[Rfam]
RNA: SAH (S-adenosyl-L-homocysteine) riboswitch aptamer
Organism: Ideonella aquatica
RNA sequence: GCUUCCAAGGAGCGUUGCAGCAGCGCGCCGGCCUGCCACAGGACCGGGUGCUGUCAGGCUUGGGGCCCAACAACCACGCUCGCCCGAC
Dot-bracket structure: ..((((((............((((((.....................))))))......)))))).......................
Numbered sequence: 001g002c003u004u005c006c007a008a009g010g011a012g013c014g015u016u017g018c019a020g021c022a023g024c025g026c027g028c029c030g031g032c033c034u035g036c037c038a039c040a041g042g043a044c045c046g047g048g049u050g051c052u053g054u055c056a057g058g059c060u061u062g063g064g065g066c067c068c069a070a071c072a073a074c075c076a077c078g079c080u081c082g083c084c085c086g087a088c
Stems, first nucleotide, its partner, number of pairs: 003065006021053006